RNA sequence: ACCCUCCGGUUCCUUUCCCCAUCAGAUCUAGUUGCUGGUCUUGGUUGUUGUACAGUGGGAAGAUUACACCAAAGCUGUCCUCUCUGAGAUGUAGUUUGGUGUAGAGUAUGAAGGCCAGAUUCAAGCAAAG
Number, nucleotide and partner (000 for none) at each position: 001a000002c000003c059004c058005u057006c000007c055008g000009g000010u000011u000012c000013c000014u000015u000016u000017c000018c000019c047020c000021a045022u044023c043024a000025g040026a039027u038028c037029u000030a000031g000032u000033u000034g000035c000036u000037g028038g027039u026040c025041u000042u000043g023044g022045u021046u000047g019048u000049u000050g000051u000052a000053c000054a000055g007056u000057g005058g004059g003060a000061a000062g000063a000064u000065u000066a000067c000068a000069c000070c000071a000072a000073a000074g000075c118076u117077g116078u000079c114080c113081u112082c000083u000084c000085u000086g000087a000088g000089a000090u108091g107092u106093a000094g000095u000096u000097u000098g000099g000100u000101g000102u000103a000104g000105a000106g092107u091108a090109u000110g000111a000112a081113g080114g079115c000116c077117a076118g075119a000120u000121u000122c000123a000124a000125g000126c000127a000128a000129a000130g000
A member of the RNA family "Small nucleolar RNA SNORA61" from Cricetulus griseus, 130 nucleotides long. Gene Ontology terms of the family: nucleolus and RNA processing. A search with the family's covariance model found it, with a score of 81 bits. Rfam 15.1 lists 881 matches to the family in 421 species. The base pairs follow the family's consensus structure, which was predicted with PFOLD. Rfam describes the family as follows. ACA61 is a member of the H/ACA class of snoRNA that guide the sites of modification of uridines to pseudouridines.